[Rfam]
RNA sequence: CUAAUGUUUCUUGCUUAAAUGGGUAUUCCAUGAAAGUGAUUCACACUCACUAUGUAGACCUAACUACGAGUCGAUUUCUCUCUUCAUGAGAUGCUCAUUUAAGCAAGCAAUGUUAG
Numbered sequence: 001c002u003a004a005u006g007u008u009u010c011u012u013g014c015u016u017a018a019a020u021g022g023g024u025a026u027u028c029c030a031u032g033a034a035a036g037u038g039a040u041u042c043a044c045a046c047u048c049a050c051u052a053u054g055u056a057g058a059c060c061u062a063a064c065u066a067c068g069a070g071u072c073g074a075u076u077u078c079u080c081u082c083u084u085c086a087u088g089a090g091a092u093g094c095u096c097a098u099u100u101a102a103g104c105a106a107g108c109a110a111u112g113u114u115a116g
Stems, first nucleotide, its partner, number of pairs: 004113005010107018029088002